[Rfam]
RNA sequence: UUGAACUCUUAACUUGAUAGGUGGAAUGAUAGGGUAACGCCUUGAAACGCCUACUCUAAUACUCCGACAUGCGUUAUUUGAAAGUGUAUAAGAAUAAGGUAUGAAGCUCGGUAAAGUCGGCUGAAAGUUGCCGUAGUGCUCAUGAGUAACCGAAAGCUAACCAGAGGUGGUUGGUGCAACUGAUAAGUCGGGAGUCGUGAAA
Numbered sequence: 001u002u003g004a005a006c007u008c009u010u011a012a013c014u015u016g017a018u019a020g021g022u023g024g025a026a027u028g029a030u031a032g033g034g035u036a037a038c039g040c041c042u043u044g045a046a047a048c049g050c051c052u053a054c055u056c057u058a059a060u061a062c063u064c065c066g067a068c069a070u071g072c073g074u075u076a077u078u079u080g081a082a083a084g085u086g087u088a089u090a091a092g093a094a095u096a097a098g099g100u101a102u103g104a105a106g107c108u109c110g111g112u113a114a115a116g117u118c119g120g121c122u123g124a125a126a127g128u129u130g131c132c133g134u135a136g137u138g139c140u141c142a143u144g145a146g147u148a149a150c151c152g153a154a155a156g157c158u159a160a161c162c163a164g165a166g167g168u169g170g171u172u173g174g175u176g177c178a179a180c181u182g183a184u185a186a187g188u189c190g191g192g193a194g195u196c197g198u199g200a201a202a
Base pairs, nucleotide, nucleotide: 018053019052020051021050022049023048031043032042033041034040054194055193056192057191064111065110066109067108068103069102070101071100072099074097075096076095077094078093079092118190119189120188121187122186126181127180128179129178130177131176132152133151138147139146156175157174158173159172160171161170162169163168
Shown here is a 202-nucleotide sequence from Bacillus sp. MRMR6, a member of the family "Group II catalytic intron D1-D4-5".
Rfam links the family to the GO term Group II intron splicing.
From the family's description: Group II introns are found in rRNA, tRNA and mRNA of organelles in fungi, plants and protists, and also in mRNA in bacteria.